RNA sequence: GGAGUCGGACGGGGUAUCGCUGCGGGUCAUACGACCCGGAGAGGAAAGUCCGGGCUCCAAAGGGCAGAACGCUGGGUAACCCCCAGGGAGAGCGAUCUUCGGAAAGUGCCACAGAAAACAAACCGCCGUGCGGCAUGCCGCGCGGUAAGGGUGAAACGGUGGGGUAAGAGCCCACCAGAUACCGCGGUGACGCGGUAUGCUCGGUAAACCCCGUUCGGAGCAAGACCAAAUAGGGAAGCGCUACGGUCGGCCCGGCCAAUGCUUCCGGGUAGGUUGCUUGAGGUCAUGGGCAACCAUGAUCCUAGAGGAAUGAUACCCCCCCUGCAAAGGGGACAGAACCCGGCUUACAGUCCGACUCCCGUU
Numbered sequence: 001g002g003a004g005u006c007g008g009a010c011g012g013g014g015u016a017u018c019g020c021u022g023c024g025g026g027u028c029a030u031a032c033g034a035c036c037c038g039g040a041g042a043g044g045a046a047a048g049u050c051c052g053g054g055c056u057c058c059a060a061a062g063g064g065c066a067g068a069a070c071g072c073u074g075g076g077u078a079a080c081c082c083c084c085a086g087g088g089a090g091a092g093c094g095a096u097c098u099u100c101g102g103a104a105a106g107u108g109c110c111a112c113a114g115a116a117a118a119c120a121a122a123c124c125g126c127c128g129u130g131c132g133g134c135a136u137g138c139c140g141c142g143c144g145g146u147a148a149g150g151g152u153g154a155a156a157c158g159g160u161g162g163g164g165u166a167a168g169a170g171c172c173c174a175c176c177a178g179a180u181a182c183c184g185c186g187g188u189g190a191c192g193c194g195g196u197a198u199g200c201u202c203g204g205u206a207a208a209c210c211c212c213g214u215u216c217g218g219a220g221c222a223a224g225a226c227c228a229a230a231u232a233g234g235g236a237a238g239c240g241c242u243a244c245g246g247u248c249g250g251c252c253c254g255g256c257c258a259a260u261g262c263u264u265c266c267g268g269g270u271a272g273g274u275u276g277c278u279u280g281a282g283g284u285c286a287u288g289g290g291c292a293a294c295c296a297u298g299a300u301c302c303u304a305g306a307g308g309a310a311u312g313a314u315a316c317c318c319c320c321c322c323u324g325c326a327a328a329g330g331g332g333a334c335a336g337a338a339c340c341c342g343g344c345u346u347a348c349a350g351u352c353c354g355a356c357u358c359c360c361g362u363u
Stems, first nucleotide, its partner, number of pairs: 001359010011348001012318007020041002023038006046346003050343005055220004062253004067216005072086005087100005101211002106209002108205003123150002125146009158176006178200001179198008224275004234266006245257004282301008
The record is a 363-nucleotide RNA sequence from Desulfovibrio psychrotolerans, which matches "Bacterial RNase P class A" in Rfam. Pairs were carried over by alignment from the consensus structure, which is taken from published work. The organism belongs to Desulfovibrio, within Bacteria. A search with the family's covariance model found it, with a score of 346 bits.